Source information: Rfam assigns this 99-nucleotide RNA from Oryza brachyantha to the family "Small nucleolar RNA snoR99". It is annotated as an H/ACA-box small nucleolar RNA. It scores 84 bits against the family's covariance model. Gene Ontology terms of the family: nucleolus and RNA processing. The family's consensus secondary structure was predicted with WAR. The literature on the family includes a 2002 paper in Curr Biol by Marker et al., "Experimental RNomics: identification of 140 candidates for small non-messenger RNAs in the plant Arabidopsis thaliana". The source organism's lineage runs through Eukaryota, Magnoliopsida, Petrosaviidae, Oryzinae and Oryza.
RNA sequence: GUGCCUGUGGGAUGAACAGGUCCCGAUAUUUAUCACCAUUUUUUUCACUUUGUCAGCUGAUAGUCAUGUCUUUAGCUGAUCAUUAAGAAUGGGAAAUGU
Dot-bracket structure: ...................................(((((...........((((((((.............)))))))).......))))).......
Numbered sequence: 001g002u003g004c005c006u007g008u009g010g011g012a013u014g015a016a017c018a019g020g021u022c023c024c025g026a027u028a029u030u031u032a033u034c035a036c037c038a039u040u041u042u043u044u045u046c047a048c049u050u051u052g053u054c055a056g057c058u059g060a061u062a063g064u065c066a067u068g069u070c071u072u073u074a075g076c077u078g079a080u081c082a083u084u085a086a087g088a089a090u091g092g093g094a095a096a097u098g099u
Stems, first nucleotide, its partner, number of pairs: 036092005052080008